[Rfam]
RNA sequence: CUUUAUCAUUCUCUGGUCUUGUGUGAAUUUUAUACUACUGGACGGAGAACUGAUAAAGGA
Dot-bracket structure: (((((((((((..(...((....................))...).))).))))))))..
Numbered sequence: 001c002u003u004u005a006u007c008a009u010u011c012u013c014u015g016g017u018c019u020u021g022u023g024u025g026a027a028u029u030u031u032a033u034a035c036u037a038c039u040g041g042a043c044g045g046a047g048a049a050c051u052g053a054u055a056a057a058g059g060a
Stems, first nucleotide, its partner, number of pairs: 001058008009049003014045001018041002
The record is a 60-nucleotide RNA sequence from Acyrthosiphon pisum, which matches "mir-184 microRNA precursor family" in Rfam. For this family Rfam cites "The developmental miRNA profiles of zebrafish as determined by small RNA cloning" (Chen et al., Genes Dev, 2005). NCBI's taxonomy places the organism under Eukaryota, Opisthokonta, Hexapoda, Aphidomorpha, Acyrthosiphon. Its family is annotated with gene silencing by miRNA and RISC complex in the Gene Ontology.